[Rfam]
RNA sequence: GCCCUUCAAAUGGCCGGCGCCUUCCCCUAUAUUCCCAUCGUGCCGGUCGCACCGGCUAUGGCGAUAAAUGGUCUGUGAAAUAAGCCUUUCGGACCCGGGGGCGGUACCCGGCGCCUCCACCAUGAACGGUGACACCAUCACCGCUGAUGCUGGGGGCGAAAUAGGCUCGACGAGGGUCUAAAGACAGCGCUUUCGCCCGGCAUGGUACCGCCGUUAUCGGACCGAACAAUAGUUGCCAACGACAACUAUGCUGAGGCUCGCCUCGCUGCGUAAUGCAGCCUGACGGCUUCGAAUAAAGCCCUGGGCCGUUAGCACGGUUCAGGCGGGGUCCGGAGGCGCCUGGCAACAGAAGCCUCCACU
Numbered sequence: 001g002c003c004c005u006u007c008a009a010a011u012g013g014c015c016g017g018c019g020c021c022u023u024c025c026c027c028u029a030u031a032u033u034c035c036c037a038u039c040g041u042g043c044c045g046g047u048c049g050c051a052c053c054g055g056c057u058a059u060g061g062c063g064a065u066a067a068a069u070g071g072u073c074u075g076u077g078a079a080a081u082a083a084g085c086c087u088u089u090c091g092g093a094c095c096c097g098g099g100g101g102c103g104g105u106a107c108c109c110g111g112c113g114c115c116u117c118c119a120c121c122a123u124g125a126a127c128g129g130u131g132a133c134a135c136c137a138u139c140a141c142c143g144c145u146g147a148u149g150c151u152g153g154g155g156g157c158g159a160a161a162u163a164g165g166c167u168c169g170a171c172g173a174g175g176g177u178c179u180a181a182a183g184a185c186a187g188c189g190c191u192u193u194c195g196c197c198c199g200g201c202a203u204g205g206u207a208c209c210g211c212c213g214u215u216a217u218c219g220g221a222c223c224g225a226a227c228a229a230u231a232g233u234u235g236c237c238a239a240c241g242a243c244a245a246c247u248a249u250g251c252u253g254a255g256g257c258u259c260g261c262c263u264c265g266c267u268g269c270g271u272a273a274u275g276c277a278g279c280c281u282g283a284c285g286g287c288u289u290c291g292a293a294u295a296a297a298g299c300c301c302u303g304g305g306c307c308g309u310u311a312g313c314a315c316g317g318u319u320c321a322g323g324c325g326g327g328g329u330c331c332g333g334a335g336g337c338g339c340c341u342g343g344c345a346a347c348a349g350a351a352g353c354c355u356c357c358a359c360u
Stems, first nucleotide, its partner, number of pairs: 042056005060197005070190001073187004085176003089173003095111005112158007198213004203224003208220002326341004332357006
The family of this 360-nucleotide RNA sequence from Propylenella binzhouense is "Alphaproteobacteria transfer-messenger RNA". The family's RNA type in Rfam is non-coding RNA gene. NCBI's taxonomy places the organism under Bacteria, Alphaproteobacteria, Hyphomicrobiales, Propylenellaceae, Propylenella.